[Rfam]
RNA sequence: UGGCUAUAAAAUAAUUUAUUUUAUAGCUAUUUUGAGUUACGAUAAUUAUUAUGUUAAUUUAUAAGAUUAUACUAACUCCUUGCUAGGUGGUUUACUAUAACGUUAUGAUAAAUAUUCUCAUAUCCUCAUGUGUUAUAGUAACUCAACUAUCGUAAAUAUAUAUUGAUAUUAUCGUAAAUUAAUAUAUAAAAUUAUCGUAAAUAAAGAUGGCCACAGAAUAACUUUUUUUAGCCU
Numbered sequence: 001u002g003g004c005u006a007u008a009a010a011a012u013a014a015u016u017u018a019u020u021u022u023a024u025a026g027c028u029a030u031u032u033u034g035a036g037u038u039a040c041g042a043u044a045a046u047u048a049u050u051a052u053g054u055u056a057a058u059u060u061a062u063a064a065g066a067u068u069a070u071a072c073u074a075a076c077u078c079c080u081u082g083c084u085a086g087g088u089g090g091u092u093u094a095c096u097a098u099a100a101c102g103u104u105a106u107g108a109u110a111a112a113u114a115u116u117c118u119c120a121u122a123u124c125c126u127c128a129u130g131u132g133u134u135a136u137a138g139u140a141a142c143u144c145a146a147c148u149a150u151c152g153u154a155a156a157u158a159u160a161u162a163u164u165g166a167u168a169u170u171a172u173c174g175u176a177a178a179u180u181a182a183u184a185u186a187u188a189a190a191a192u193u194a195u196c197g198u199a200a201a202u203a204a205a206g207a208u209g210g211c212c213a214c215a216g217a218a219u220a221a222c223u224u225u226u227u228u229u230a231g232c233c234u
Base pairs, nucleotide, nucleotide: 002233003232004231005230006229009228010227011226013224014223016221017220018219019218020217021216022215024213026211027210028209029208030207031206032205033204037200038199039198040197041196042195043194044193045192046191047190050186051185052184053183054182055181056180057179058178059177060176061175062174065173066172067171069169070168071167072165074163080155081154082153083152087150088149089148090147091146092145093140094139095138096137097136098135099134100133101132102131103130107125